Shown here is a 74-nucleotide RNA sequence from Nocardioides iriomotensis, a member of the family "6C RNA". Taxonomically the source falls in Nocardioides (Bacteria, Actinomycetota, Actinomycetes, Propionibacteriales). By type it is a cis-regulatory element. Gene Ontology term of the family: sporulation. The match comes from Rfam's covariance-model search (53 bits). The literature on the family includes a 2007 paper in Nucleic Acids Res by Weinberg et al., "Identification of 22 candidate structured RNAs in bacteria using the CMfinder comparative genomics pipeline".

RNA sequence: UGAGGGUCAGGCUCAGCCCCCCAGAGUCUGACUCCUGCGGCCCCCGGUCACCCCCCCGACCGGGGGCCGCCCCC
Number, nucleotide and partner (000 for none) at each position: 001u000002g036003a000004g034005g033006g032007u031008c030009a029010g028011g027012c026013u025014c000015a000016g000017c000018c000019c000020c000021c000022c000023a000024g000025a013026g012027u011028c010029u009030g008031a007032c006033u005034c004035c000036u002037g070038c069039g068040g067041c066042c065043c064044c063045c062046g061047g060048u059049c058050a000051c000052c000053c000054c000055c000056c000057c000058g049059a048060c047061c046062g045063g044064g043065g042066g041067c040068c039069g038070c037071c000072c000073c000074c000